RNA sequence: CAUAGCGUGGUUCGUCGACCAUCCCACGUAAAAAAACUAGGAGGAA
Numbered sequence: 001c002a003u004a005g006c007g008u009g010g011u012u013c014g015u016c017g018a019c020c021a022u023c024c025c026a027c028g029u030a031a032a033a034a035a036a037c038u039a040g041g042a043g044g045a046a
Base pairs, nucleotide, nucleotide: 006028007027008026009025010024015039
RNA: PreQ1 (pre queuosine) riboswitch aptamer
Organism: Jeotgalibaca porci